[Rfam]
RNA sequence: AUUCAAUAACUACACAGGCCUCGUAUAUGUCCAUUAAUCUGGUAUGGAUGUCUCUACCAAGUCACCGUAAAUGACUUGACUAUGAGGACGGAUAUCGCCAUG
Numbered sequence: 001a002u003u004c005a006a007u008a009a010c011u012a013c014a015c016a017g018g019c020c021u022c023g024u025a026u027a028u029g030u031c032c033a034u035u036a037a038u039c040u041g042g043u044a045u046g047g048a049u050g051u052c053u054c055u056a057c058c059a060a061g062u063c064a065c066c067g068u069a070a071a072u073g074a075c076u077u078g079a080c081u082a083u084g085a086g087g088a089c090g091g092a093u094a095u096c097g098c099c100a101u102g
Stems, first nucleotide, its partner, number of pairs: 019087007029049006058078007